[Rfam]
RNA sequence: GUGACAGAAGAGAGUGAGCACACAUGAUGUUUUCUUGCAUGGGAGGUGAAGCCAUGCUCGAAGUUAUGUGUGCUCACCCUCUCUCUGUCAC
Numbered sequence: 001g002u003g004a005c006a007g008a009a010g011a012g013a014g015u016g017a018g019c020a021c022a023c024a025u026g027a028u029g030u031u032u033u034c035u036u037g038c039a040u041g042g043g044a045g046g047u048g049a050a051g052c053c054a055u056g057c058u059c060g061a062a063g064u065u066a067u068g069u070g071u072g073c074u075c076a077c078c079c080u081c082u083c084u085c086u087g088u089c090a091c
Stems, first nucleotide, its partner, number of pairs: 001091008010081003014077008023068003

Rfam assigns this 91-nucleotide RNA sequence from Dendrobium catenatum to the family "mir-156 microRNA precursor family". It scores 81 bits against the family's covariance model. About the family: This family represents the plant microRNA (miRNA) precursor mir-156. The organism belongs to Dendrobium, within Eukaryota.